[Rfam]
RNA: pemK RNA
RNA sequence: AUAAUGAUACUUCUAACAGUUGAAGCCGGCUCAUCUUGAAAAGGGGCGGAGGUGAAAUUCCUAUGU
Numbered sequence: 001a002u003a004a005u006g007a008u009a010c011u012u013c014u015a016a017c018a019g020u021u022g023a024a025g026c027c028g029g030c031u032c033a034u035c036u037u038g039a040a041a042a043g044g045g046g047c048g049g050a051g052g053u054g055a056a057a058u059u060c061c062u063a064u065g066u
Stems, first nucleotide, its partner, number of pairs: 012063001013025002026049003030045003050062003